Rfam assigns this 138-nucleotide RNA from Weissella halotolerans to the family "FMN riboswitch aptamer (RFN element)". Pairs were carried over by alignment from the consensus structure, which is taken from published work.
RNA sequence: AAAACUCUUCAGGGCAGGGUGAGAUUCCCGACCGGCGGUAAGCGAAAGUGAGUCCGCGACCCAGUUAUCUAAACGGUAACUGGUUGACAUGGUGUAAAUCCAUGACCGACAGUAUAGUCUGGUAUGCAGAAGAACUUA
Number, nucleotide and partner (000 for none) at each position: 001a000002a000003a136004a000005c000006u133007c132008u131009u130010c129011a000012g000013g000014g000015c000016a000017g029018g028019g027020u000021g000022a000023g000024a000025u000026u000027c019028c018029c017030g000031a118032c117033c108034g107035g057036c056037g055038g054039u000040a000041a000042g000043c000044g000045a000046a000047a000048g000049u000050g000051a000052g106053u105054c038055c037056g036057c035058g000059a000060c000061c083062c082063a000064g000065u000066u000067a000068u000069c000070u000071a000072a000073a000074c000075g000076g000077u000078a000079a000080c000081u000082g062083g061084u000085u000086g000087a000088c104089a103090u102091g101092g100093u000094g000095u000096a000097a000098a000099u000100c092101c091102a090103u089104g088105a053106c052107c034108g033109a000110c121111a120112g119113u000114a000115u000116a000117g032118u031119c112120u111121g110122g000123u000124a000125u000126g000127c000128a000129g010130a009131a008132g007133a006134a000135c000136u003137u000138a000
Overview:
NCBI's taxonomy places the organism under Bacteria, Bacillati, Lactobacillaceae, Weissella, Weissella halotolerans.